Shown here is a 114-nucleotide RNA sequence from Zostera marina, a member of the family "Small nucleolar RNA Z278". Gene Ontology terms of the family: nucleolus and RNA processing. A reference for the family is Chen et al. (2003), "The high diversity of snoRNAs in plants: identification and comparative study of 120 snoRNA genes from Oryza sativa", Nucleic Acids Res. By type it is a C/D-box small nucleolar RNA. The match comes from Rfam's covariance-model search (54 bits). The organism belongs to Zostera, within Eukaryota. Rfam's curators write: snoZ278 is a C/D box small nucleolar RNA. Its methylation guide targets have not been reported.
[Rfam]
RNA sequence: UUCUUUGAUGAUAUAUCCAAUUGGUUUAGUUGUAGGUUACUUCAGGCCCCUGUUCUGCAGGGAGAACCUCCUGCAGUUCCUUCAUUCAUAUGACAUUUCUGGAUCUUCUGAGAA
Numbered sequence: 001u002u003c004u005u006u007g008a009u010g011a012u013a014u015a016u017c018c019a020a021u022u023g024g025u026u027u028a029g030u031u032g033u034a035g036g037u038u039a040c041u042u043c044a045g046g047c048c049c050c051u052g053u054u055c056u057g058c059a060g061g062g063a064g065a066a067c068c069u070c071c072u073g074c075a076g077u078u079c080c081u082u083c084a085u086u087c088a089u090a091u092g093a094c095a096u097u098u099c100u101g102g103a104u105c106u107u108c109u110g111a112g113a114a
Base pairs, nucleotide, nucleotide: 001114002113003112048062049061050060051059052058